[Rfam]
RNA: c-di-AMP riboswitch aptamer (ydaO/yuaA leader)
RNA sequence: UCGCUGGGGCCGCCUAAUCGGAUCCUCCUCGGAGGGACGAACCGGGAACCCACCUUUCCAAAUUGGGGUGAAUCCCGCCGGAGCCGCAUCCGCGGUGCCGGUCGGUAGGGCUGAUCUUCCCAGCCCGAACCCGUCAGCUAACCCGGUCGGCGUACGAACGGAAGAAAC
Numbered sequence: 001u002c003g004c005u006g007g008g009g010c011c012g013c014c015u016a017a018u019c020g021g022a023u024c025c026u027c028c029u030c031g032g033a034g035g036g037a038c039g040a041a042c043c044g045g046g047a048a049c050c051c052a053c054c055u056u057u058c059c060a061a062a063u064u065g066g067g068g069u070g071a072a073u074c075c076c077g078c079c080g081g082a083g084c085c086g087c088a089u090c091c092g093c094g095g096u097g098c099c100g101g102u103c104g105g106u107a108g109g110g111c112u113g114a115u116c117u118u119c120c121c122a123g124c125c126c127g128a129a130c131c132c133g134u135c136a137g138c139u140a141a142c143c144c145g146g147u148c149g150g151c152g153u154a155c156g157a158a159c160g161g162a163a164g165a166a167a168c
Stems, first nucleotide, its partner, number of pairs: 011152004018040003041147006051065002066132003074105002108126004